RNA: Plastid psbT antisense RNA
RNA sequence: AUAUUUGGAUUUCCAAGUUUUUGGAAUGCUUCAAAUUC
Numbered sequence: 001a002u003a004u005u006u007g008g009a010u011u012u013c014c015a016a017g018u019u020u021u022u023g024g025a026a027u028g029c030u031u032c033a034a035a036u037u038c
Stems, first nucleotide, its partner, number of pairs: 003018006020035006